About this RNA:
The family of this 391-nucleotide part of an RNA from Lasiodiplodia theobromae is "Eukaryotic large subunit ribosomal RNA". The family's consensus secondary structure is taken from published work. Lineage of the source: Eukaryota > Opisthokonta > Ascomycota > Botryosphaeriaceae > Lasiodiplodia.
RNA sequence: GACCGUCGCCCCAAUGGUAAUUCCGCUCAGUACGAGAGGAACCGCGGAUUCAGAUAAUUGGUUUUUGCGGCUGUCCGACCGGGCAGUGCCGCGAAGCUACCAUCUGCUGGAUUAUAGCUGAACGCCUCUAAGUUAGAAUCCAUGCCAGAACGGGGUGAUUCUCUCCUGCACAUCGUAGUCGGAUACGAAUAGGCCUCUGGCCCAGAAUCCUAGCAGGCCGGCGACGGGGGCUCCGUAGAAGUCGGGGUCCCUAGCUGGCGGAUUGCAAUUUCACAAUGCGCAGGGAUAAAUCCUUUGCAGACGACUUAGUUGUCUGACCGGGUCGUGUAAGUAGUCGAGUAGCCUUGUUGUUACGAGCUACUGAGCGUAAGCCCGCGUCAGCUAGAUUUGU
Numbered sequence: 001g002a003c004c005g006u007c008g009c010c011c012c013a014a015u016g017g018u019a020a021u022u023c024c025g026c027u028c029a030g031u032a033c034g035a036g037a038g039g040a041a042c043c044g045c046g047g048a049u050u051c052a053g054a055u056a057a058u059u060g061g062u063u064u065u066u067g068c069g070g071c072u073g074u075c076c077g078a079c080c081g082g083g084c085a086g087u088g089c090c091g092c093g094a095a096g097c098u099a100c101c102a103u104c105u106g107c108u109g110g111a112u113u114a115u116a117g118c119u120g121a122a123c124g125c126c127u128c129u130a131a132g133u134u135a136g137a138a139u140c141c142a143u144g145c146c147a148g149a150a151c152g153g154g155g156u157g158a159u160u161c162u163c164u165c166c167u168g169c170a171c172a173u174c175g176u177a178g179u180c181g182g183a184u185a186c187g188a189a190u191a192g193g194c195c196u197c198u199g200g201c202c203c204a205g206a207a208u209c210c211u212a213g214c215a216g217g218c219c220g221g222c223g224a225c226g227g228g229g230g231c232u233c234c235g236u237a238g239a240a241g242u243c244g245g246g247g248u249c250c251c252u253a254g255c256u257g258g259c260g261g262a263u264u265g266c267a268a269u270u271u272c273a274c275a276a277u278g279c280g281c282a283g284g285g286a287u288a289a290a291u292c293c294u295u296u297g298c299a300g301a302c303g304a305c306u307u308a309g310u311u312g313u314c315u316g317a318c319c320g321g322g323u324c325g326u327g328u329a330a331g332u333a334g335u336c337g338a339g340u341a342g343c344c345u346u347g348u349u350g351u352u353a354c355g356a357g358c359u360a361c362u363g364a365g366c367g368u369a370a371g372c373c374c375g376c377g378u379c380a381g382c383u384a385g386a387u388u389u390g391u
Stems, first nucleotide, its partner, number of pairs: 005159008015147004020050001022048005051106005059099003066093005071086006108142003115135005165284005171278001288389005293309002297305001314381005320374003324367002331361004336357001339354005